[Rfam]
RNA sequence: GGCGUAAAGGGUCCGUAGGCGGUCUGGUAAGUGGAAGGUGAAAUCCUACGGCUCAACCGUAGAAUUGCCUUCCAAACUGCUGGACUUGAGGCAGGGAGAGGUCGGCGGAAUUCCCGGUGUAGCGGUGAAAUGCGUAGAUAUCGGGAGGAACACCAGUGGCGAAGGCGGCCGACUGGAACUGUCCUGACGCUGAGGGACGAAAGCUAGGGGAGCAAACCGGAUUAGAUACCCGGGUAGUCCUAGCCGUAAACGAUGGAUGCUAGAUGUGGCCUACGAAAGUAGGCUGUGCCGCAAGCUAACGCGUUAAGCAUCCCGCCUGGGGAGUACGGCCGCAAGGUUGAAACUCAAAGGAAU
Numbered sequence: 001g002g003c004g005u006a007a008a009g010g011g012u013c014c015g016u017a018g019g020c021g022g023u024c025u026g027g028u029a030a031g032u033g034g035a036a037g038g039u040g041a042a043a044u045c046c047u048a049c050g051g052c053u054c055a056a057c058c059g060u061a062g063a064a065u066u067g068c069c070u071u072c073c074a075a076a077c078u079g080c081u082g083g084a085c086u087u088g089a090g091g092c093a094g095g096g097a098g099a100g101g102u103c104g105g106c107g108g109a110a111u112u113c114c115c116g117g118u119g120u121a122g123c124g125g126u127g128a129a130a131u132g133c134g135u136a137g138a139u140a141u142c143g144g145g146a147g148g149a150a151c152a153c154c155a156g157u158g159g160c161g162a163a164g165g166c167g168g169c170c171g172a173c174u175g176g177a178a179c180u181g182u183c184c185u186g187a188c189g190c191u192g193a194g195g196g197a198c199g200a201a202a203g204c205u206a207g208g209g210g211a212g213c214a215a216a217c218c219g220g221a222u223u224a225g226a227u228a229c230c231c232g233g234g235u236a237g238u239c240c241u242a243g244c245c246g247u248a249a250a251c252g253a254u255g256g257a258u259g260c261u262a263g264a265u266g267u268g269g270c271c272u273a274c275g276a277a278a279g280u281a282g283g284c285u286g287u288g289c290c291g292c293a294a295g296c297u298a299a300c301g302c303g304u305u306a307a308g309c310a311u312c313c314c315g316c317c318u319g320g321g322g323a324g325u326a327c328g329g330c331c332g333c334a335a336g337g338u339u340g341a342a343a344c345u346c347a348a349a350g351g352a353a354u
Stems, first nucleotide, its partner, number of pairs: 001317003009314001011198004016192001018191003022085007030078002032074009046062006089185003092181003100174007107151001111147008122133003159166002203244006212238002217233004255313006263290001265288010295302002319346003328339004
RNA: Bacterial small subunit ribosomal RNA, nucleotides 537 to 890